[Rfam]
RNA sequence: GUGACAGAAGAGAGUGAGAACAAAUGGUGUUUUCUUGCAUGAUUUCCAUGCUUGAAGCUAUGUGUGUUUACUCUCUUCCUGUCAC
Numbered sequence: 001g002u003g004a005c006a007g008a009a010g011a012g013a014g015u016g017a018g019a020a021c022a023a024a025u026g027g028u029g030u031u032u033u034c035u036u037g038c039a040u041g042a043u044u045u046c047c048a049u050g051c052u053u054g055a056a057g058c059u060a061u062g063u064g065u066g067u068u069u070a071c072u073c074u075c076u077u078c079c080u081g082u083c084a085c
Stems, first nucleotide, its partner, number of pairs: 001085007009077001010075009020065002024061002
This 85-nucleotide sequence from Cuscuta europaea belongs to the Rfam family "mir-156 microRNA precursor family". Rfam describes the family as follows. This family represents the plant microRNA (miRNA) precursor mir-156. Its family is annotated with miRNA-mediated post-transcriptional gene silencing and RISC complex in the Gene Ontology. The family has 10 seed sequences and 1,401 matches in Rfam 15.1.